[Rfam]
RNA sequence: UAGUGUUACAGCUAUUUUAGAAUUUUUCUAGUAGGCUUUCUGGUAUAUGCUAGAAAGCUCCC
Numbered sequence: 001u002a003g004u005g006u007u008a009c010a011g012c013u014a015u016u017u018u019a020g021a022a023u024u025u026u027u028c029u030a031g032u033a034g035g036c037u038u039u040c041u042g043g044u045a046u047a048u049g050c051u052a053g054a055a056a057g058c059u060c061c062c
Base pairs, nucleotide, nucleotide: 034059035058036057037056038055039054040053041052042051043050044049

Rfam assigns this 62-nucleotide RNA sequence from Carlito syrichta to the family "U7 small nuclear RNA". Taxonomically the source falls in Carlito (Eukaryota, Vertebrata, Sarcopterygii, Mammalia). Rfam's curators write: Animal histone pre-mRNAs are spliced by a different mechanism than nuclear pre-mRNAs and self-splicing introns. This processing involves the U7 snRNP, which contains only one RNA species: U7. The 5' end of U7 RNA is thought to base-pair to a conserved spacer element downstream of the cleavage site in histone pre-mRNA. This family contains a number of annotated U7 pseudogenes.